[Rfam]
RNA sequence: AUCACCUGGGGAUUUUGUUCAAAUGCAGACUCUGGUUCAGUAAGUCCAGGGCAGGAUCCAAGAUCCUGCAUUUCUAACCAGCUCCCAGGUGAUGCUGA
Numbered sequence: 001a002u003c004a005c006c007u008g009g010g011g012a013u014u015u016u017g018u019u020c021a022a023a024u025g026c027a028g029a030c031u032c033u034g035g036u037u038c039a040g041u042a043a044g045u046c047c048a049g050g051g052c053a054g055g056a057u058c059c060a061a062g063a064u065c066c067u068g069c070a071u072u073u074c075u076a077a078c079c080a081g082c083u084c085c086c087a088g089g090u091g092a093u094g095c096u097g098a
Stems, first nucleotide, its partner, number of pairs: 003091003009085003014081002017078003021073003025069004031063003

Annotation: Shown here is a 98-nucleotide RNA sequence from Neomonachus schauinslandi, a member of the family "mir-544 microRNA precursor family". Lineage of the source: Eukaryota > Vertebrata > Dipnotetrapodomorpha > Mammalia > Neomonachus.